Record summary:
The family of this 508-nucleotide RNA from Streptomonospora alba is "Saccharopolyspora sRNA 350".
RNA sequence: UUGGCGGUGGCGUCCCAGGCGCCGUCGUCCUCGAUCAGCGCGGCCGAGCCGAAGUGGUCGCCGUCGAUCAUGGUUCCCAGGACGGUCUGGUUGCCGUACUCGCCGGUGCCCAGUCGGUUCACUUUUCCGUGGGCGAUGAGGCAGACCCGGUCGGCCGCGUCGCCGCGUUCGACGAUGACGUCGCCGGGCGCGUACUCCUCUUGGGUGAAGCGCUCGGCCAGUGCCCCGAGCGCCGCCUCGUCGCCGAAGUCGCGCAGCAGCGACAGUUCGCAGAGUUCACGCGGGAUCACCCGGACGUCGGCUCCGGUGGUGACGAAGCUGACCCGGCCGUCGCCGACGGUGUAGGUCAGUCGCCGGUUCACCCGGUAGGAGCCGCCUGUCGCCUCGAUCCAGGGGAGUAGGCGCAGCAGCCAGCGGGAGGUGAUCCCCUGCAUCUGCGGAGGCGUCUUGGUCGUCGUCGCCAGUUUUCUCGCGGCCUCGGUUCCCAGGCUCAGCCGCUGCUGCUCGU
Number, nucleotide and partner (000 for none) at each position: 001u000002u000003g000004g000005c000006g390007g389008u388009g000010g386011c000012g384013u000014c382015c000016c000017a000018g328019g000020c000021g325022c000023c000024g000025u322026c321027g320028u000029c318030c000031u316032c315033g000034a000035u313036c312037a311038g000039c309040g308041c307042g000043g000044c000045c000046g304047a303048g302049c301050c300051g299052a298053a000054g233055u232056g000057g000058u229059c228060g227061c000062c000063g224064u223065c000066g110067a000068u108069c000070a000071u000072g000073g000074u000075u000076c000077c102078c000079a100080g099081g000082a097083c096084g095085g094086u093087c000088u000089g000090g000091u000092u000093g086094c085095c084096g083097u082098a000099c080100u079101c000102g077103c000104c000105g000106g000107u000108g068109c000110c066111c000112a000113g000114u000115c000116g000117g222118u221119u220120c000121a000122c217123u216124u000125u000126u000127c212128c000129g000130u209131g000132g206133g000134c204135g000136a202137u000138g000139a199140g198141g197142c000143a196144g195145a000146c000147c000148c000149g000150g191151u000152c000153g000154g189155c188156c187157g000158c186159g185160u000161c183162g000163c177164c000165g000166c174167g173168u172169u000170c000171g000172a168173c167174g166175a000176u000177g163178a000179c000180g000181u000182c000183g161184c000185c159186g158187g156188g155189c154190g000191c150192g000193u000194a000195c144196u143197c141198c140199u139200c000201u000202u136203g000204g134205g000206u132207g000208a000209a130210g000211c000212g127213c000214u000215c000216g123217g122218c000219c000220a119221g118222u117223g064224c063225c000226c000227c060228g059229a058230g000231c000232g055233c054234c000235g000236c294237c293238u000239c000240g290241u289242c000243g287244c000245c285246g000247a000248a000249g000250u000251c281252g280253c000254g278255c000256a277257g276258c275259a000260g271261c270262g269263a000264c000265a000266g000267u000268u000269c262270g261271c260272a000273g000274a000275g258276u257277u256278c254279a000280c252281g251282c000283g000284g000285g245286a000287u243288c000289a241290c240291c000292c000293g237294g236295a000296c000297g000298u052299c051300g050301g049302c048303u047304c046305c000306g000307g041308u040309g039310g000311u037312g036313a035314c000315g032316a031317a000318g029319c000320u027321g026322a025323c000324c000325c021326g000327g000328c018329c342330g341331u340332c339333g000334c000335c000336g000337a000338c000339g332340g331341u330342g329343u000344a000345g000346g000347u000348c000349a000350g000351u379352c000353g377354c000355c375356g374357g373358u000359u000360c372361a000362c370363c369364c000365g000366g000367u000368a000369g363370g362371a000372g360373c357374c356375g355376c000377c353378u000379g351380u000381c000382g014383c000384c012385u000386c010387g000388a008389u007390c006391c431392a430393g429394g428395g427396g426397a425398g000399u423400a422401g000402g000403c418404g000405c416406a000407g415408c000409a000410g000411c000412c000413a000414g000415c407416g405417g000418g403419a000420g000421g000422u400423g399424a000425u397426c396427c395428c394429c393430u392431g391432c000433a000434u000435c000436u000437g476438c475439g000440g473441a000442g471443g470444c000445g468446u000447c000448u464449u463450g462451g461452u460453c000454g000455u000456c000457g000458u000459c000460g452461c451462c450463a449464g448465u000466u000467u000468u445469c000470u443471c442472g000473c440474g000475g438476c437477c000478u000479c000480g505481g504482u503483u000484c000485c500486c497487a000488g495489g000490c000491u000492c000493a000494g000495c488496c000497g486498c000499u000500g485501c000502u000503g482504c481505u480506c000507g000508u000
By type it is an antisense RNA. Pairs were carried over by alignment from the consensus structure, which was predicted with RNAfold. On this family, see Liu et al., PLoS One 2013: "Prediction and characterization of small non-coding RNAs related to secondary metabolites in Saccharopolyspora erythraea". Taxonomically the source falls in Streptomonospora (Bacteria, Bacillati, Actinomycetota, Nocardiopsidaceae).